RNA sequence: CGCGCCACAGGAGGCUUUGACGCGCGGCCAUUCCCACGGCCGCCGAGACCGCGCCGAGCCACCGGCGAGACCGACCUGCGGCGAC
Numbered sequence: 001c002g003c004g005c006c007a008c009a010g011g012a013g014g015c016u017u018u019g020a021c022g023c024g025c026g027g028c029c030a031u032u033c034c035c036a037c038g039g040c041c042g043c044c045g046a047g048a049c050c051g052c053g054c055c056g057a058g059c060c061a062c063c064g065g066c067g068a069g070a071c072c073g074a075c076c077u078g079c080g081g082c083g084a085c
Stems, first nucleotide, its partner, number of pairs: 003083004008078004013060003022054006029047001038072002041067004
RNA: c-di-GMP-II-GAG riboswitch aptamer